This 86-nucleotide sequence belongs to the Rfam family "Group II catalytic intron D1-D4-1". Rfam 15.1 lists 2,508 matches to the family in 1,144 species. The pairing is the family consensus, mapped onto this sequence. Rfam describes the family as follows. Group II introns are found in rRNA, tRNA and mRNA of organelles in fungi, plants and protists, and also in mRNA in bacteria. For this family Rfam cites "The ins and outs of group II introns" (Bonen and Vogel, Trends Genet, 2001).

[Rfam]
RNA sequence: CGCCUCAUGCCUGAAAGGGCGACGGUGCGAGCCGGAGCGAGAAGUCAGCAGAGGUCGUAGUAGCUGCCGGUACAGGGGCGAAGGGC
Numbered sequence: 001c002g003c004c005u006c007a008u009g010c011c012u013g014a015a016a017g018g019g020c021g022a023c024g025g026u027g028c029g030a031g032c033c034g035g036a037g038c039g040a041g042a043a044g045u046c047a048g049c050a051g052a053g054g055u056c057g058u059a060g061u062a063g064c065u066g067c068c069g070g071u072a073c074a075g076g077g078g079c080g081a082a083g084g085g086c
Stems, first nucleotide, its partner, number of pairs: 001029002005024001008021005045052002054086003063079003067075001
It scores 44 bits against the family's covariance model.